[Rfam]
RNA: ffh sRNA
RNA sequence: CCUGUCAGGGAUCGCCCCCCACCAGCGUGUUACGCCCGUGGGGGCAAUUCUG
Numbered sequence: 001c002c003u004g005u006c007a008g009g010g011a012u013c014g015c016c017c018c019c020c021a022c023c024a025g026c027g028u029g030u031u032a033c034g035c036c037c038g039u040g041g042g043g044g045c046a047a048u049u050c051u052g
Base pairs, nucleotide, nucleotide: 016044017043018042019041020040021039022038025035026034027033028032